[Rfam]
RNA sequence: CGCGUAUUUUGCGAUGGCGGAGCUCGACCGCCCGUUGAAGCGAUGAAAGCGUUCAUCGAUGCGCACCGUGAGGUCCAUGGAGUCGAGCCGAUCCGCCGCGUCCUGCCGAUCGCUCCG
Number, nucleotide and partner (000 for none) at each position: 001c000002g000003c000004g000005u000006a000007u000008u000009u000010u000011g000012c000013g000014a000015u000016g032017g031018c030019g029020g028021a000022g000023c000024u000025c000026g000027a000028c020029c019030g018031c017032c016033c000034g000035u000036u000037g000038a000039a000040g000041c000042g000043a000044u000045g000046a000047a000048a000049g000050c000051g000052u000053u000054c000055a000056u000057c000058g000059a000060u000061g000062c000063g000064c000065a000066c000067c000068g000069u000070g000071a000072g000073g000074u000075c000076c000077a000078u117079g116080g115081a114082g113083u000084c000085g000086a000087g000088c000089c112090g111091a000092u109093c108094c000095g106096c105097c000098g103099c000100g000101u000102c000103c098104u000105g096106c095107c000108g093109a092110u000111c090112g089113c082114u081115c080116c079117g078
Description
Shown here is a 117-nucleotide RNA sequence from Amaricoccus solimangrovi, a member of the family "ALIL pseudoknot". It is annotated as a cis-regulatory element. On this family, see Mazauric et al., J Biol Chem 2008: "Apical loop-internal loop RNA pseudoknots: a new type of stimulator of -1 translational frameshifting in bacteria".